[Rfam]
RNA sequence: UCGUUAAGUAAUGAUGUAGUAAACAAAAUGUCAUGUCAUCACGCCUUGUCACGAACAUCAUCAUUGUCAUGUCAUCAUCAUCAAUAACAUGACACUGAUGUGUCAGUGAUUGGACGUAUUGACGUGACAUUCCGUCUGUCACAUCAUCACUUAACGGAA
Numbered sequence: 001u002c003g004u005u006a007a008g009u010a011a012u013g014a015u016g017u018a019g020u021a022a023a024c025a026a027a028a029u030g031u032c033a034u035g036u037c038a039u040c041a042c043g044c045c046u047u048g049u050c051a052c053g054a055a056c057a058u059c060a061u062c063a064u065u066g067u068c069a070u071g072u073c074a075u076c077a078u079c080a081u082c083a084a085u086a087a088c089a090u091g092a093c094a095c096u097g098a099u100g101u102g103u104c105a106g107u108g109a110u111u112g113g114a115c116g117u118a119u120u121g122a123c124g125u126g127a128c129a130u131u132c133c134g135u136c137u138g139u140c141a142c143a144u145c146a147u148c149a150c151u152u153a154a155c156g157g158a159a
Base pairs, nucleotide, nucleotide: 001157002156003155004154005153006152007151008150009149011147012146013145014144015143016142017141019139020138021137023135024134027131028130029129030128031127032126033125034124035123036122037121038120041117042116043115045113046112048110049109050108051107052106055103056102057101058100071088072087074085075084
RNA: MIR4371 microRNA precursor family